A member of the RNA family "RT-2 RNA", 176 nucleotides long. It is annotated as a small RNA. The family's consensus secondary structure is taken from published work.
RNA sequence: GUGGGCUUGCCCACAAAUAUCAGCCUUGAUAUGUCCAGGUGGACGCUGCUUGCAUGGGUGCCGGACUGCGUUAGGUGCUUUCAUACCUGUAGACAUUAUGUGGCAUAGUACGCAAAACGCCGAAAGUGAGAUUAUAUAUCUAUCAUUCGGGGUAUGCCAUACAAGGCGUUUUUUAA
Dot-bracket structure: ((((......))))......((((((((..((((((((((....((.....))..(((((((...........)))))))....)))))..)))))...((((..(...................)................)))).)))))).))....................